[Rfam]
Description:
The family of this 92-nucleotide RNA from Capillimicrobium parvum is "Selenocysteine transfer RNA". The organism belongs to Capillimicrobium, within Bacteria. The literature on the family includes a 1997 paper in Nucleic Acids Res by Lowe and Eddy, "tRNAscan-SE: a program for improved detection of transfer RNA genes in genomic sequence". The base pairs follow the family's consensus structure, which is taken from published work. A search with the family's covariance model found it, with a score of 66 bits.
RNA sequence: GGAGCGGCCGGGGCCCGGUGGCCCGUCCGGUCUUCAAAACCGGGAAGCCGCGGCAGCCCCGCGGUUGGGAGGUUCGACUCCUUCGCCGCUCC
Numbered sequence: 001g002g003a004g005c006g007g008c009c010g011g012g013g014c015c016c017g018g019u020g021g022c023c024c025g026u027c028c029g030g031u032c033u034u035c036a037a038a039a040c041c042g043g044g045a046a047g048c049c050g051c052g053g054c055a056g057c058c059c060c061g062c063g064g065u066u067g068g069g070a071g072g073u074u075c076g077a078c079u080c081c082u083u084c085g086c087c088g089c090u091c092c
Stems, first nucleotide, its partner, number of pairs: 001092008011024005026044006046066005069083004